Rfam assigns this 165-nucleotide RNA sequence from Lancefieldella parvula to the family "Lysine riboswitch aptamer". Pairs were carried over by alignment from the consensus structure, which is taken from published work. The source organism's lineage runs through Bacteria, Bacillati, Coriobacteriales, Atopobiaceae and Lancefieldella parvula.
RNA sequence: ACUGUCAAUAGAGGAGCGAGCACGAUGGGUUCUGGGUUAGCCGGCAGGCAGUGACCCCAGAAGGAGGCGAGGUUCGCCGAACUUGGCAAUCAGGCGUGGUUGUCAGGUGGGCUUGUAUGAAAUACAUGCAAGACUGUCCGAGAUUUCGGGGGUGCUACUUUGACG
Numbered sequence: 001a002c003u004g005u006c007a008a009u010a011g012a013g014g015a016g017c018g019a020g021c022a023c024g025a026u027g028g029g030u031u032c033u034g035g036g037u038u039a040g041c042c043g044g045c046a047g048g049c050a051g052u053g054a055c056c057c058c059a060g061a062a063g064g065a066g067g068c069g070a071g072g073u074u075c076g077c078c079g080a081a082c083u084u085g086g087c088a089a090u091c092a093g094g095c096g097u098g099g100u101u102g103u104c105a106g107g108u109g110g111g112c113u114u115g116u117a118u119g120a121a122a123u124a125c126a127u128g129c130a131a132g133a134c135u136g137u138c139c140g141a142g143a144u145u146u147c148g149g150g151g152g153u154g155c156u157a158c159u160u161u162g163a164c165g
Base pairs, nucleotide, nucleotide: 007159009157010156011155016077017076018075019074020073021072023069024068030062031061032060033059034058035057036056081108082107083106084105085104086103087102088101089100090099091098092097109135110134112132113131114130115129116128117127118126119125137150138149139148140147141146